[Rfam]
RNA sequence: GUCAACUACCCCUCCUGAAUCAGAGAUUGAGAAGGGGCUUGUAAAAGCCCAAGUUGACUAGCCUAAGUCUUAAUUGACUACGUUCGGCAGGAUGUAGAUACCUUUGGAUGUAAUCGCCAGUCCGAAGCUCUGUCGUGGCUCUGUAAAAGCUCUGUGAGGAAGGAGCGGUCAACCACGUUGUGAAGCCUGCUGAACAUUGGCGAGGCGAACCUUAC
Numbered sequence: 001g002u003c004a005a006c007u008a009c010c011c012c013u014c015c016u017g018a019a020u021c022a023g024a025g026a027u028u029g030a031g032a033a034g035g036g037g038c039u040u041g042u043a044a045a046a047g048c049c050c051a052a053g054u055u056g057a058c059u060a061g062c063c064u065a066a067g068u069c070u071u072a073a074u075u076g077a078c079u080a081c082g083u084u085c086g087g088c089a090g091g092a093u094g095u096a097g098a099u100a101c102c103u104u105u106g107g108a109u110g111u112a113a114u115c116g117c118c119a120g121u122c123c124g125a126a127g128c129u130c131u132g133u134c135g136u137g138g139c140u141c142u143g144u145a146a147a148a149g150c151u152c153u154g155u156g157a158g159g160a161a162g163g164a165g166c167g168g169u170c171a172a173c174c175a176c177g178u179u180g181u182g183a184a185g186c187c188u189g190c191u192g193a194a195c196a197u198u199g200g201c202g203a204g205g206c207g208a209a210c211c212u213u214a215c
Stems, first nucleotide, its partner, number of pairs: 001058007010037002012034002015031002038047003061201003065197001066079004082195010098133002102127008110211001114208005135176004142171002147169001149166005155160001
The record is a 215-nucleotide RNA sequence from Desulfobacter postgatei, which matches "HNH endonuclease-associated RNA and ORF (HEARO) RNA" in Rfam.
For this family Rfam cites "Exceptional structured noncoding RNAs revealed by bacterial metagenome analysis" (Weinberg et al., Nature, 2009).
The family's RNA type in Rfam is non-coding RNA gene.
The family has 139 seed sequences and 952 matches in Rfam 15.1.